[Rfam]
RNA: SAM riboswitch aptamer (S box leader)
Organism: Neobacillus vireti
RNA sequence: UUCUUAUCAAGAGAGGUGGAGGGACUGGCCCUUUGAAGCCUCGGCAGCAGACUUUUUAUAGUACUGUGCCAAUUCCAGUAGCAUGAUGCUAGAAGAUAAGAG
Numbered sequence: 001u002u003c004u005u006a007u008c009a010a011g012a013g014a015g016g017u018g019g020a021g022g023g024a025c026u027g028g029c030c031c032u033u034u035g036a037a038g039c040c041u042c043g044g045c046a047g048c049a050g051a052c053u054u055u056u057u058a059u060a061g062u063a064c065u066g067u068g069c070c071a072a073u074u075c076c077a078g079u080a081g082c083a084u085g086a087u088g089c090u091a092g093a094a095g096a097u098a099a100g101a102g
Base pairs, nucleotide, nucleotide: 001102002101003100004099005098006097007096008095013042014041015040016039017038021031022030023029025078026077027076028075043070044069045068046067048066049065051062052061053060074094079091080090081089082088083087